[Rfam]
Background
Shown here is a 94-nucleotide RNA from Oryza punctata, a member of the family "Small nucleolar RNA Z256". The family has 5 seed sequences and 63 matches in Rfam 15.1. The pairing is the family consensus, mapped onto this sequence.
RNA sequence: ACUUGCCGAUCAUGCUGACACCAUCUACUCGGGCCUGGCUGACUGGCCUCCCCGAGUACACCAUCAACAGCUGGGGCGAGCUGAAGGCCCAGUU
Numbered sequence: 001a002c003u004u005g006c007c008g009a010u011c012a013u014g015c016u017g018a019c020a021c022c023a024u025c026u027a028c029u030c031g032g033g034c035c036u037g038g039c040u041g042a043c044u045g046g047c048c049u050c051c052c053c054g055a056g057u058a059c060a061c062c063a064u065c066a067a068c069a070g071c072u073g074g075g076g077c078g079a080g081c082u083g084a085a086g087g088c089c090c091a092g093u094u
Base pairs, nucleotide, nucleotide: 003092004091005090007087
Dot-bracket structure: ..(((.(...............................................................................)..)))..
The match comes from Rfam's covariance-model search (82 bits). The organism belongs to Oryza, within Eukaryota. The family's RNA type in Rfam is C/D-box small nucleolar RNA.